[Rfam]
RNA sequence: UAUUAGGUUGGUGCAAAAGCUAUUGUGGUUUUUGCCAUUAAAAGUAAUGGCAAAUGUCACAGUUGCUUUUGCACCAACCUAAUA
Numbered sequence: 001u002a003u004u005a006g007g008u009u010g011g012u013g014c015a016a017a018a019g020c021u022a023u024u025g026u027g028g029u030u031u032u033u034g035c036c037a038u039u040a041a042a043a044g045u046a047a048u049g050g051c052a053a054a055u056g057u058c059a060c061a062g063u064u065g066c067u068u069u070u071g072c073a074c075c076a077a078c079c080u081a082a083u084a
Base pairs, nucleotide, nucleotide: 001084002083003082004081005080006079007078008077009076010075011074012073013072014071015070016069017068018067019066020065022063023062024061025060026059027058028057029056031054032053033052034051035050036049037048038047039046040045
Dot-bracket structure: ((((((((((((((((((((.((((((((.((((((((((....)))))))))).)))))))).))))))))))))))))))))
Shown here is an 84-nucleotide RNA sequence from Theropithecus gelada, a member of the family "mir-548 microRNA precursor family". The source organism's lineage runs through Eukaryota, Eumetazoa, Deuterostomia, Craniata and Theropithecus. The family has 11 seed sequences and 3,009 matches in Rfam 15.1. The family's consensus secondary structure was predicted with WAR.